Record summary
A member of the RNA family "Group II catalytic intron D1-D4-7" from Sphingomonas sanxanigenens, 149 nucleotides long. The base pairs follow the family's consensus structure. The organism belongs to Sphingomonas sanxanigenens, within Bacteria. From the family's description: Group II introns are found in rRNA, tRNA and mRNA of organelles in fungi, plants and protists, and also in mRNA in bacteria. Its family is annotated with Group II intron splicing in the Gene Ontology.
[Rfam]
RNA sequence: CCUGAUGUUCCGUCAUCAGUAGCCUACCGGCACAUGCGGGACUGGUAACGGUCCGGUGUGAAGCUGCCGGGACAAUGUAGCCGGGCCUUCGGGCCGUGUUGCCACCGUGAGGUGAAAACACUUCUGCGAGCACCAAUGCGGAAAGGCGC
Numbered sequence: 001c002c003u004g005a006u007g008u009u010c011c012g013u014c015a016u017c018a019g020u021a022g023c024c025u026a027c028c029g030g031c032a033c034a035u036g037c038g039g040g041a042c043u044g045g046u047a048a049c050g051g052u053c054c055g056g057u058g059u060g061a062a063g064c065u066g067c068c069g070g071g072a073c074a075a076u077g078u079a080g081c082c083g084g085g086c087c088u089u090c091g092g093g094c095c096g097u098g099u100u101g102c103c104a105c106c107g108u109g110a111g112g113u114g115a116a117a118a119c120a121c122u123u124c125u126g127c128g129a130g131c132a133c134c135a136a137u138g139c140g141g142a143a144a145g146g147c148g149c
Stems, first nucleotide, its partner, number of pairs: 002019006028069005033060005039054006084095004096121004105112002123142006